This 163-nucleotide RNA sequence from Oryza nivara belongs to the Rfam family "MIR2118 microRNA precursor family".
Gene Ontology terms of the family: RISC complex and miRNA-mediated post-transcriptional gene silencing.

[Rfam]
RNA sequence: GUGAGCCAGGAAGAGGAUAGAGACUCUAAGAGCAGUAGGAAUGGGAACAUGAAGGAAAGCCAAACCAAGCUCUAACUCCUGGAGUUGGAGAUUUGGUAUGACGAUUUUCCUGAUGCCUUCCAUUCCUACAGUUCUUAGGUCCUUGUUCCUCUUACUUUCGGCU
Numbered sequence: 001g002u003g004a005g006c007c008a009g010g011a012a013g014a015g016g017a018u019a020g021a022g023a024c025u026c027u028a029a030g031a032g033c034a035g036u037a038g039g040a041a042u043g044g045g046a047a048c049a050u051g052a053a054g055g056a057a058a059g060c061c062a063a064a065c066c067a068a069g070c071u072c073u074a075a076c077u078c079c080u081g082g083a084g085u086u087g088g089a090g091a092u093u094u095g096g097u098a099u100g101a102c103g104a105u106u107u108u109c110c111u112g113a114u115g116c117c118u119u120c121c122a123u124u125c126c127u128a129c130a131g132u133u134c135u136u137a138g139g140u141c142c143u144u145g146u147u148c149c150u151c152u153u154a155c156u157u158u159c160g161g162c163u
Base pairs, nucleotide, nucleotide: 010153011152013150015148016147017146020144021143022142025139026138027137028136029135030134031133032132033131036128037127038126039125040124041123042122043121044120045119046118048115049114050113052111054110055109056108057107058106059105
The literature on the family includes a 2008 paper in Genome Res by Zhu et al., "A diverse set of microRNAs and microRNA-like small RNAs in developing rice grains". It scores 112 bits against the family's covariance model. Rfam 15.1 lists 2,377 matches to the family in 45 species.